[Rfam]
About this RNA
Small nucleolar RNA SNORD69: a 73-nucleotide RNA sequence from Taxus chinensis. Rfam links the family to the GO terms RNA processing and nucleolus. On this family, see Huttenhofer et al., EMBO J 2001: "RNomics: an experimental approach that identifies 201 candidates for novel, small, non-messenger RNAs in mouse". snoRNA HBII-210 belongs to the C/D family of snoRNAs. It is the human orthologue of the mouse MBII-210 and is predicted to guide the 2'O-ribose methylation of large 28S rRNA on residue G4464. A search with the family's covariance model found it, with a score of 38 bits.

RNA sequence: AACAGGAAUAUCAUGAUGAAAAUCGGAGCAUGGGUCACAGUGUUGAGCUGAAUCCAAACCUGAUGUUUUUGUU
Numbered sequence: 001a002a003c004a005g006g007a008a009u010a011u012c013a014u015g016a017u018g019a020a021a022a023u024c025g026g027a028g029c030a031u032g033g034g035u036c037a038c039a040g041u042g043u044u045g046a047g048c049u050g051a052a053u054c055c056a057a058a059c060c061u062g063a064u065g066u067u068u069u070u071g072u073u
Stems, first nucleotide, its partner, number of pairs: 001073010
The source organism's lineage runs through Eukaryota, Euphyllophyta, Acrogymnospermae, Cupressales and Taxus.